[Rfam]
Nucleotides: 069
Stems, first nucleotide, its partner, number of pairs: 001069002004066003
Number, partner (000 for none) and nucleotide at each position: 001069a002068a003000c004066u005065g006064a007000a008000a009000c010000u011000a012000a013000g014000a015000c016000a017000a018000u019000c020000g021000u022000c023000u024000u025000u026000g027000a028000g029000a030000a031000c032000u033000g034000a035000u036000c037000u038000g039000a040000a041000a042000u043000g044000a045000a046000g047000a048000g049000a050000g051000u052000a053000c054000u055000c056000a057000u058000u059000g060000c061000u062000g063000a064006u065005c066004a067000c068002u069001u

A member of the RNA family "Small nucleolar RNA SNORD2" from Myotis lucifugus, 69 nucleotides long. The family's consensus secondary structure was predicted with WAR. For this family Rfam cites "Identification of a novel box C/D snoRNA from mouse nucleolar cDNA library" (Zhou et al., Gene, 2004).